[Rfam]
Background:
This 87-nucleotide RNA from Aegilops tauschii belongs to the Rfam family "MIR1120/MIR1122 microRNA precursor family". For this family Rfam cites "Cloning and characterization of microRNAs from wheat (Triticum aestivum L.)" (Yao et al., Genome Biol, 2007). The family has 6 seed sequences and 44,765 matches in Rfam 15.1. Rfam links the family to the GO terms miRNA-mediated post-transcriptional gene silencing and RISC complex. Pairs were carried over by alignment from the consensus structure, which was predicted with RNAalifold.
RNA sequence: AUACUCCCUCUGUCCCAAAAUAUAAGAACGUUUUUAACACUACACUAGUAUCAAAAACGUUCUUAUAUUAUGGGACGGAGGGAGUAG
Numbered sequence: 001a002u003a004c005u006c007c008c009u010c011u012g013u014c015c016c017a018a019a020a021u022a023u024a025a026g027a028a029c030g031u032u033u034u035u036a037a038c039a040c041u042a043c044a045c046u047a048g049u050a051u052c053a054a055a056a057a058c059g060u061u062c063u064u065a066u067a068u069u070a071u072g073g074g075a076c077g078g079a080g081g082g083a084g085u086a087g
Stems, first nucleotide, its partner, number of pairs: 003085003007081005013075005019069017037051001039049003